[Rfam]
RNA sequence: UCGCGAAACGGCAAACCUGGUGAAAGCCAGGGACGCAAAGCUACAGGGCUUACUCACACCACACGGUGUGGCUGCCGGCUGAGCUACCGAAC
Numbered sequence: 001u002c003g004c005g006a007a008a009c010g011g012c013a014a015a016c017c018u019g020g021u022g023a024a025a026g027c028c029a030g031g032g033a034c035g036c037a038a039a040g041c042u043a044c045a046g047g048g049c050u051u052a053c054u055c056a057c058a059c060c061a062c063a064c065g066g067u068g069u070g071g072c073u074g075c076c077g078g079c080u081g082a083g084c085u086a087c088c089g090a091a092c
Stems, first nucleotide, its partner, number of pairs: 011036002016031006034078001039085004044081003047076003

Shown here is a 92-nucleotide sequence from Gemmatimonas phototrophica, a member of the family "c-di-GMP-I-GGC riboswitch aptamer". Lineage of the source: Bacteria > Gemmatimonadota > Gemmatimonadia > Gemmatimonadaceae > Gemmatimonas. Pairs were carried over by alignment from the consensus structure, which is taken from published work.